The family of this 203-nucleotide RNA sequence from Buceros rhinoceros is "Small nucleolar RNA SNORA74". The match comes from Rfam's covariance-model search (102 bits). On this family, see Bortolin and Kiss, RNA 1998: "Human U19 intron-encoded snoRNA is processed from a long primary transcript that possesses little potential for protein coding".

RNA sequence: UCCAGCGGUAGUCAGCUGUCCAGAGCAAUACUGUGUCUGCGAUGGUGUUACGCUGCUGGGAGAGAAAGAUCAGUCGCUUCUUCUGGCCACUGUUGUCACCGUUCUGGAGACAACUAGUGCCAGCAAGAAGUGGCCCUGUGCUUCCCUGAGAGUGCGCUGAAGAUCUGCUCUCCCUCUUCGGGGCUAGUCUGGAAGCAUACACA
Number, nucleotide and partner (000 for none) at each position: 001u060002c059003c058004a057005g056006c055007g054008g053009u052010a000011g051012u050013c000014a000015g046016c045017u044018g043019u042020c041021c039022a038023g037024a036025g000026c000027a000028a000029u000030a000031c000032u000033g000034u000035g000036u024037c023038u022039g021040c000041g020042a019043u018044g017045g016046u015047g000048u000049u000050a012051c011052g009053c008054u007055g006056c005057u004058g003059g002060g001061a000062g000063a000064g000065a000066a000067a000068g136069a000070u000071c000072a000073g134074u133075c132076g131077c130078u129079u128080c000081u000082u000083c000084u125085g124086g000087c000088c119089a118090c117091u116092g115093u000094u112095g111096u110097c109098a000099c107100c106101g000102u000103u000104c000105u000106g100107g099108a000109g097110a096111c095112a094113a000114c000115u092116a091117g090118u089119g088120c000121c000122a000123g000124c085125a084126a000127g000128a079129a078130g077131u076132g075133g074134c073135c000136c068137u000138g198139u197140g196141c195142u194143u193144c192145c191146c000147u000148g000149a000150g000151a000152g000153u000154g184155c183156g000157c000158u180159g179160a178161a177162g176163a175164u000165c000166u000167g000168c000169u000170c000171u000172c000173c000174c000175u163176c162177u161178u160179c159180g158181g000182g000183g155184c154185u000186a000187g000188u000189c000190u000191g145192g144193a143194a142195g141196c140197a139198u138199a000200c000201a000202c000203a000